A member of the RNA family "Streptococcus sRNA SpF41" from Streptococcus phage Javan381, 100 nucleotides long. Rfam classes the family as a small RNA. NCBI's taxonomy places the organism under Viruses, Duplodnaviria, Heunggongvirae, Uroviricota, Caudoviricetes. A search with the family's covariance model found it, with a score of 84 bits.

[Rfam]
RNA sequence: AAAACGUAGAGAGUCGUAUAUAGGAAUUACGCCUUGAUUGAGGAGAUUCCGGUUCGAAUCCGGGCUUCUACGUCCGGCCCCUUAAUUGGGGCUUUUCGUU
Numbered sequence: 001a002a003a004a005c006g007u008a009g010a011g012a013g014u015c016g017u018a019u020a021u022a023g024g025a026a027u028u029a030c031g032c033c034u035u036g037a038u039u040g041a042g043g044a045g046a047u048u049c050c051g052g053u054u055c056g057a058a059u060c061c062g063g064g065c066u067u068c069u070a071c072g073u074c075c076g077g078c079c080c081c082u083u084a085a086u087u088g089g090g091g092c093u094u095u096u097c098g099u100u
Base pairs, nucleotide, nucleotide: 004073005072006071007070008069009068012066013065032043033042034041035040048064049063050062051061052060077092078091079090080089081088